[Rfam]
RNA sequence: AUGCCUUAAACUAAUGAGUAAGGAAAAUAAUGAGUCGGGGUGACACCCAAUUCCUCGCUCAAAACUCGUGAGAAAUUUUUGAAAGGGUACAGGUCGACCUGAGGUGACCCGCUUACUUUCGCGGGAUUCCGAGGAGAACCGAUCUGCCCC
Number, nucleotide and partner (000 for none) at each position: 001a000002u000003g000004c023005c022006u021007u020008a019009a000010a000011c000012u000013a000014a000015u000016g000017a000018g000019u008020a007021a006022g005023g004024a000025a000026a000027a000028u000029a000030a000031u000032g053033a052034g051035u050036c000037g048038g047039g046040g000041u000042g000043a000044c000045a000046c039047c038048c037049a000050a035051u034052u033053c032054c070055u000056c068057g067058c000059u000060c000061a000062a000063a000064a000065c000066u000067c057068g056069u000070g054071a000072g000073a000074a000075a000076u000077u000078u000079u000080u000081g000082a000083a000084a000085g149086g148087g147088u146089a000090c000091a145092g144093g143094u142095c141096g140097a000098c000099c134100u133101g000102a000103g130104g129105u000106g127107a000108c125109c124110c123111g122112c121113u000114u000115a000116c000117u000118u000119u000120c000121g112122c111123g110124g109125g108126a000127u106128u000129c104130c103131g000132a000133g100134g099135a000136g000137a000138a000139c000140c096141g095142a094143u093144c092145u091146g088147c087148c086149c085150c000
RNA: U12 minor spliceosomal RNA
Organism: Acipenser ruthenus